[Rfam]
RNA sequence: ACCGUGGCUAAAUGAUGAAUUGAAUGUUGGUAGGGACAUCUGAAUUAAUGUGAAGAAACGCCAACAAUUCUGACUCCACGGA
Numbered sequence: 001a002c003c004g005u006g007g008c009u010a011a012a013u014g015a016u017g018a019a020u021u022g023a024a025u026g027u028u029g030g031u032a033g034g035g036a037c038a039u040c041u042g043a044a045u046u047a048a049u050g051u052g053a054a055g056a057a058a059c060g061c062c063a064a065c066a067a068u069u070c071u072g073a074c075u076c077c078a079c080g081g082a
Stems, first nucleotide, its partner, number of pairs: 002081004
Rfam assigns this 82-nucleotide sequence from Menidia menidia to the family "Small nucleolar RNA SNORD74".
NCBI's taxonomy places the organism under Eukaryota, Deuterostomia, Teleostomi, Osteoglossocephalai, Menidia.
Gene Ontology terms of the family: RNA processing and nucleolus.
The match comes from Rfam's covariance-model search (50 bits).
Clan: SNORD74 clan.